This 103-nucleotide RNA belongs to the Rfam family "wcaG RNA".
Rfam's curators put it in the seed alignment.
It is annotated as a cis-regulatory element.
RNA sequence: AUGGGUUUCUUGCUUCCUAAAAGCAAGUGGUGCGGAUGGAGUAAUGCUCCCGCUUGAGAUUUAGUUAUUACUCAACAUAAAAAAUAACUUGGCGUGCAUGAUC
Number, nucleotide and partner (000 for none) at each position: 001a000002u000003g000004g000005g000006u000007u000008u000009c027010u026011u025012g024013c023014u022015u021016c000017c000018u000019a000020a000021a015022a014023g013024c012025a011026a010027g009028u000029g000030g000031u000032g000033c000034g000035g000036a000037u000038g050039g049040a000041g047042u046043a000044a000045u000046g042047c041048u000049c039050c038051c000052g000053c000054u000055u000056g073057a072058g071059a000060u000061u000062u000063a089064g088065u087066u086067a085068u084069u000070a000071c058072u057073c056074a000075a000076c000077a000078u000079a000080a000081a000082a000083a000084a068085u067086a066087a065088c064089u063090u000091g000092g000093c000094g000095u000096g000097c000098a000099u000100g000101a000102u000103c000